RNA sequence: GGGUGAGGUAGAGGUGCGAUAUUCAACAGUCUUUAGUGAAGUUUGAGAAGCGUUGAUACUAAGGAGAAGGGGAUGUCGCCGAAGCUGAUAAUAUUCUCAGUAUUAUUAGCUGGGUCUGCAGUUAAGAGUUGCAGGACUGUCUCAAUAAGCUUCCCGGUUUAUUGAGUUGUGCUAUCUCAUUU
Numbered sequence: 001g002g003g004u005g006a007g008g009u010a011g012a013g014g015u016g017c018g019a020u021a022u023u024c025a026a027c028a029g030u031c032u033u034u035a036g037u038g039a040a041g042u043u044u045g046a047g048a049a050g051c052g053u054u055g056a057u058a059c060u061a062a063g064g065a066g067a068a069g070g071g072g073a074u075g076u077c078g079c080c081g082a083a084g085c086u087g088a089u090a091a092u093a094u095u096c097u098c099a100g101u102a103u104u105a106u107u108a109g110c111u112g113g114g115u116c117u118g119c120a121g122u123u124a125a126g127a128g129u130u131g132c133a134g135g136a137c138u139g140u141c142u143c144a145a146u147a148a149g150c151u152u153c154c155c156g157g158u159u160u161a162u163u164g165a166g167u168u169g170u171g172c173u174a175u176c177u178c179a180u181u182u
Stems, first nucleotide, its partner, number of pairs: 006177006016079009031064008083111012112138002115135008141166009
Lysine riboswitch aptamer: a 182-nucleotide RNA sequence from Desulforamulus reducens. Rfam links the family to the GO term lysine biosynthetic process. A search with the family's covariance model found it, with a score of 107 bits. NCBI's taxonomy places the organism under Bacteria, Clostridia, Peptococcaceae, Desulforamulus, Desulforamulus reducens.